[Rfam]
RNA sequence: UUCAAUAGAACGAGAUCUCUCAAGGGUGGUCGGCUCACUCUCUCAUGUCUAAAAACGAGGGGGUGAUGCUGGUGGAGGUUUAUCAAGCGCUGACGCUUAUGUUUAUGUUUGGCAUGUUCAUUUUGGCGCUGCUUACUUACCUCAAAAAGAAAUAGACCGCCCUUGAGCUUGCGAGGCCAGGCGGCGGUCUUUUCACUGUAACACAUAUGGAGCCGCUCCCUUGUAGGAACGUCUAUUGAAGUAACCGUGGGUGCGGGAACACCUACG
Numbered sequence: 001u002u003c004a005a006u007a008g009a010a011c012g013a014g015a016u017c018u019c020u021c022a023a024g025g026g027u028g029g030u031c032g033g034c035u036c037a038c039u040c041u042c043u044c045a046u047g048u049c050u051a052a053a054a055a056c057g058a059g060g061g062g063g064u065g066a067u068g069c070u071g072g073u074g075g076a077g078g079u080u081u082a083u084c085a086a087g088c089g090c091u092g093a094c095g096c097u098u099a100u101g102u103u104u105a106u107g108u109u110u111g112g113c114a115u116g117u118u119c120a121u122u123u124u125g126g127c128g129c130u131g132c133u134u135a136c137u138u139a140c141c142u143c144a145a146a147a148a149g150a151a152a153u154a155g156a157c158c159g160c161c162c163u164u165g166a167g168c169u170u171g172c173g174a175g176g177c178c179a180g181g182c183g184g185c186g187g188u189c190u191u192u193u194c195a196c197u198g199u200a201a202c203a204c205a206u207a208u209g210g211a212g213c214c215g216c217u218c219c220c221u222u223g224u225a226g227g228a229a230c231g232u233c234u235a236u237u238g239a240a241g242u243a244a245c246c247g248u249g250g251g252u253g254c255g256g257g258a259a260c261a262c263c264u265a266c267g
Stems, first nucleotide, its partner, number of pairs: 001240005007234003014213001016211002019167008028157001030155001035066003039062005074136001076134004087102003112127002178198001217228003246267008
RNA: BsrG
Organism: Brevibacillus brevis